This 55-nucleotide sequence from Ornithorhynchus anatinus belongs to the Rfam family "mir-2985 microRNA precursor family". For this family Rfam cites "The solution structure of the ADAR2 dsRBM-RNA complex reveals a sequence-specific readout of the minor groove" (Stefl et al., Cell, 2010). The family has 8 seed sequences and 2,000 matches in Rfam 15.1. About the family: RNAs can be post-transcriptional modified, in micro RNAs (miRNA) editing of pre-mRNA is a common process. Taxonomically the source falls in Ornithorhynchus (Eukaryota, Gnathostomata, Sarcopterygii, Mammalia).
[Rfam]
RNA sequence: GUGGGUGGAAUAGUAUAACAAUAUGCUAAAUGUUGUUAUAGUAUCCCACCUACCC
Numbered sequence: 001g002u003g004g005g006u007g008g009a010a011u012a013g014u015a016u017a018a019c020a021a022u023a024u025g026c027u028a029a030a031u032g033u034u035g036u037u038a039u040a041g042u043a044u045c046c047c048a049c050c051u052a053c054c055c
Stems, first nucleotide, its partner, number of pairs: 001053008010044003014040011